[Rfam]
RNA sequence: UCAGAGAAUUCGCUUAAUCGAAAGAACGGGGGAACCAUUUGCAGUUUGUUUUAACUGCCGGGGUGAAUCCUGAAAUCAGGUAGGGCUACUCUCAAAGCCCGAAUCCGACAGCUAACCUCGUAAGCGUUUAUGAGAGAGGAU
Numbered sequence: 001u002c003a004g005a006g007a008a009u010u011c012g013c014u015u016a017a018u019c020g021a022a023a024g025a026a027c028g029g030g031g032g033a034a035c036c037a038u039u040u041g042c043a044g045u046u047u048g049u050u051u052u053a054a055c056u057g058c059c060g061g062g063g064u065g066a067a068u069c070c071u072g073a074a075a076u077c078a079g080g081u082a083g084g085g086c087u088a089c090u091c092u093c094a095a096a097g098c099c100c101g102a103a104u105c106c107g108a109c110a111g112c113u114a115a116c117c118u119c120g121u122a123a124g125c126g127u128u129u130a131u132g133a134g135a136g137a138g139g140a141u
Base pairs, nucleotide, nucleotide: 011126012125013124014123018025019024026121027120028119029118030117031116036060061106062105063104069080070079071078072077083100084099085098086097
A member of the RNA family "c-di-AMP riboswitch aptamer (ydaO/yuaA leader)" from Exobacillus caeni, 141 nucleotides long. Pairs were carried over by alignment from the consensus structure. Its family is annotated with regulation of gene expression and cyclic-di-AMP binding in the Gene Ontology. It scores 102 bits against the family's covariance model. Rfam describes the family as follows. This family represents a conserved RNA structure found upstream of the ydaO and yuaA genes in Bacillus subtilis and related genes in other bacteria.